Rfam assigns this 57-nucleotide sequence from Tetracentron sinense to the family "Plastid-ndhJ 3UTR RNA". The family's RNA type in Rfam is cis-regulatory element. The source organism's lineage runs through Eukaryota, Streptophyta, Magnoliopsida, Trochodendraceae and Tetracentron. Plastid ndhJ is a non-coding RNA (ncRNA) present in plastids. It was identified as a short stem-loop motif in the 3 prime untranslate region (3UTR) of ndhJ gene.

RNA sequence: UCAUGAACUUUGUACCGCGCACAUCACUUAGAUGGGCCCCGGAAAGCAACGUAGGAA
Numbered sequence: 001u002c003a004u005g006a007a008c009u010u011u012g013u014a015c016c017g018c019g020c021a022c023a024u025c026a027c028u029u030a031g032a033u034g035g036g037c038c039c040c041g042g043a044a045a046g047c048a049a050c051g052u053a054g055g056a057a
Stems, first nucleotide, its partner, number of pairs: 019037002022034004